[Rfam]
The record is a 77-nucleotide sequence from Alligator mississippiensis, which matches "Mammalian CPEB3 ribozyme" in Rfam. A search with the family's covariance model found it, with a score of 40 bits. Taxonomically the source falls in Alligator (Eukaryota, Vertebrata, Amniota, Alligatoridae).
RNA sequence: GGUUGCAAUUUUGAGGCCGUAACAGAGGUGCUCCAGGCAUGGCCCUGUCAAAUUCCAAUGAAUCUGCAAAUUCUGCU
Numbered sequence: 001g002g003u004u005g006c007a008a009u010u011u012u013g014a015g016g017c018c019g020u021a022a023c024a025g026a027g028g029u030g031c032u033c034c035a036g037g038c039a040u041g042g043c044c045c046u047g048u049c050a051a052a053u054u055c056c057a058a059u060g061a062a063u064c065u066g067c068a069a070a071u072u073c074u075g076c077u
Stems, first nucleotide, its partner, number of pairs: 013045001015044004021077001023075005028040003049066002052063004